[Rfam]
RNA sequence: AGGGCCACUAGAGGAUUACACAUAUGACUGCUGUGUCACAUGUGUCAGUAGGUGGCAAAGAGUAGACAGGCUAUGUCUAUGCUCAAUGUUCUGAGUUACCAACAUCUGAAUGAUUAAUACUGUGAUAUU
Numbered sequence: 001a002g003g004g005c006c007a008c009u010a011g012a013g014g015a016u017u018a019c020a021c022a023u024a025u026g027a028c029u030g031c032u033g034u035g036u037c038a039c040a041u042g043u044g045u046c047a048g049u050a051g052g053u054g055g056c057a058a059a060g061a062g063u064a065g066a067c068a069g070g071c072u073a074u075g076u077c078u079a080u081g082c083u084c085a086a087u088g089u090u091c092u093g094a095g096u097u098a099c100c101a102a103c104a105u106c107u108g109a110a111u112g113a114u115u116a117a118u119a120c121u122g123u124g125a126u127a128u129u
Stems, first nucleotide, its partner, number of pairs: 004056003008051003013046001018045004023040001025038004065126001067124002070121001072119003080112002083109003087104004

Notes
The record is a 129-nucleotide RNA from Rattus norvegicus, which matches "Small nucleolar RNA SNORA17" in Rfam. It scores 80 bits against the family's covariance model. On this family, see Ofengand and Bakin, J Mol Biol 1997: "Mapping to nucleotide resolution of pseudouridine residues in large subunit ribosomal RNAs from representative eukaryotes, prokaryotes, archaebacteria, mitochondria and chloroplasts". Taxonomically the source falls in Rattus (Eukaryota, Bilateria, Chordata, Craniata). Rfam links the family to the GO terms nucleolus and RNA processing. Clan: SNORA17 clan. From the family's description: snoRNA ACA 17 belongs to the H/ACA family of snoRNAs and is predicted to guide pseudouridylation of the 28S rRNA at positions U4659 and U4598.